T-box leader: a 224-nucleotide RNA sequence from Sporosarcina luteola. It scores 107 bits against the family's covariance model. The family has 48 seed sequences and 19,395 matches in Rfam 15.1. The organism belongs to Sporosarcina, within Bacteria. Rfam's curators write: Uncharged tRNA acts as the effector for transcription antitermination of genes in the T-box leader family. T-boxes are found upstream of many aminoacyl-tRNA synthetase genes and some amino acid biosynthetic genes usually in Gram-positive bacteria. The anticodon of a specific tRNA base pairs to a specifier sequence within the T-box motif, and the NCCA acceptor tail of the tRNA base pairs to a conserved bulge in the T-box antiterminator hairpin. Its family is annotated with tRNA binding in the Gene Ontology.
RNA sequence: AAAAAAGCAUUGAUAAGGAAAAGUACACAUUGCAUGCUCUACAGAGAGGAUCAUCACCGGCUGUAAGUGAUCCGUGCCCCUGUAAUGUGGAAAUGCCCCUUUGAGCGCCGUGCCGAACAAUGCAGUAGGCCGGACGCACCGCCAGCGUUACAGGCGUCAAGCGGGAAGUGGCGUUUUGGCUGCUUUCAAGCGGAGUGGAACCGCGCAUCUAAUGCGUCUCUGUC
Numbered sequence: 001a002a003a004a005a006a007g008c009a010u011u012g013a014u015a016a017g018g019a020a021a022a023g024u025a026c027a028c029a030u031u032g033c034a035u036g037c038u039c040u041a042c043a044g045a046g047a048g049g050a051u052c053a054u055c056a057c058c059g060g061c062u063g064u065a066a067g068u069g070a071u072c073c074g075u076g077c078c079c080c081u082g083u084a085a086u087g088u089g090g091a092a093a094u095g096c097c098c099c100u101u102u103g104a105g106c107g108c109c110g111u112g113c114c115g116a117a118c119a120a121u122g123c124a125g126u127a128g129g130c131c132g133g134a135c136g137c138a139c140c141g142c143c144a145g146c147g148u149u150a151c152a153g154g155c156g157u158c159a160a161g162c163g164g165g166a167a168g169u170g171g172c173g174u175u176u177u178g179g180c181u182g183c184u185u186u187c188a189a190g191c192g193g194a195g196u197g198g199a200a201c202c203g204c205g206c207a208u209c210u211a212a213u214g215c216g217u218c219u220c221u222g223u224c
Base pairs, nucleotide, nucleotide: 007106008105015101016100017099018098026089027088028087029086030085031084037076039074048073049072050071051070052069053068108133109132110131112130113129114128135147136146137145164187165186166185167184168183169182170181171180172179192221193220194219195218203217204216205215206214207213